[Rfam]
RNA: SAM (S-adenosyl methionine) riboswitch aptamer
Organism: Nocardia sp. SYP-A9097
RNA sequence: GGUCAUGAGUACCAGCGUCAAGCCCCGGCUGGCUGGUCGGCAACCCUCCUCCGCGGUGGGGUGCUCCGGGUGACGACCUGGCCGCGCAUCGGGCAACGGUGCGGCAAGUGCGGAUU
Numbered sequence: 001g002g003u004c005a006u007g008a009g010u011a012c013c014a015g016c017g018u019c020a021a022g023c024c025c026c027g028g029c030u031g032g033c034u035g036g037u038c039g040g041c042a043a044c045c046c047u048c049c050u051c052c053g054c055g056g057u058g059g060g061g062u063g064c065u066c067c068g069g070g071u072g073a074c075g076a077c078c079u080g081g082c083c084g085c086g087c088a089u090c091g092g093g094c095a096a097c098g099g100u101g102c103g104g105c106a107a108g109u110g111c112g113g114a115u116u
Stems, first nucleotide, its partner, number of pairs: 001078004009038001011037006021030002039065003044061003048056002081105007090098002